Rfam assigns this 90-nucleotide RNA sequence from Larimichthys crocea to the family "mir-7 microRNA precursor family". The family's consensus secondary structure was predicted with PFOLD. Its family is annotated with RISC complex and miRNA-mediated post-transcriptional gene silencing in the Gene Ontology. About the family: This family represents the microRNA (miRNA) precursor mir-7. A reference for the family is Lagos-Quintana et al. (2001), "Identification of novel genes coding for small expressed RNAs", Science. Rfam 15.1 lists 2,589 matches to the family in 797 species.

[Rfam]
RNA sequence: UGGCUGCUGCUGUGUGGAAGACUAGUGAUUUUGUUGUUUUUAGUUAGAUCAACCGACAACAAAUCACAGUCUGCCAAAUAGCACGGGCCC
Numbered sequence: 001u002g003g004c005u006g007c008u009g010c011u012g013u014g015u016g017g018a019a020g021a022c023u024a025g026u027g028a029u030u031u032u033g034u035u036g037u038u039u040u041u042a043g044u045u046a047g048a049u050c051a052a053c054c055g056a057c058a059a060c061a062a063a064u065c066a067c068a069g070u071c072u073g074c075c076a077a078a079u080a081g082c083a084c085g086g087g088c089c090c
Base pairs, nucleotide, nucleotide: 002089003088004087005086008083010081011080012079013078015076016075017074019072020071021070022069023068025067026066027065028064029063030062031061033060034059035058036057037056038055
Dot-bracket structure: .((((..(.((((.(((.(((((.(((((((.((((((................)))))))))))))))))).))).)))).)..)))).